[Rfam]
RNA sequence: GGGCGCUUGGUUUAGGGGUAUAACGUGUCAUUUGCAUUGACAAGGUCGUGGGUUCGAUUCCCACAGUGUCCA
Numbered sequence: 001g002g003g004c005g006c007u008u009g010g011u012u013u014a015g016g017g018g019u020a021u022a023a024c025g026u027g028u029c030a031u032u033u034g035c036a037u038u039g040a041c042a043a044g045g046u047c048g049u050g051g052g053u054u055c056g057a058u059u060c061c062c063a064c065a066g067u068g069u070c071c072a
Stems, first nucleotide, its partner, number of pairs: 001071007010024003026042005048064005